[Rfam]
RNA: epsC RNA
Organism: Bacillus pseudomycoides
RNA sequence: UGGUGAUGCCUCCUAACCAAUAUCAAUGGAGACACUCGACUAUGCUGUGGGUAGAGUAAGCUUUACCUUAGACACGCUUGUUGUCAAAAGCAUGGUGUGAGGUCGGGUUAGAUGCCCG
Numbered sequence: 001u002g003g004u005g006a007u008g009c010c011u012c013c014u015a016a017c018c019a020a021u022a023u024c025a026a027u028g029g030a031g032a033c034a035c036u037c038g039a040c041u042a043u044g045c046u047g048u049g050g051g052u053a054g055a056g057u058a059a060g061c062u063u064u065a066c067c068u069u070a071g072a073c074a075c076g077c078u079u080g081u082u083g084u085c086a087a088a089a090g091c092a093u094g095g096u097g098u099g100a101g102g103u104c105g106g107g108u109u110a111g112a113u114g115c116c117c118g
Stems, first nucleotide, its partner, number of pairs: 001019004007034002010031004035101004039096008049068008071085004104118005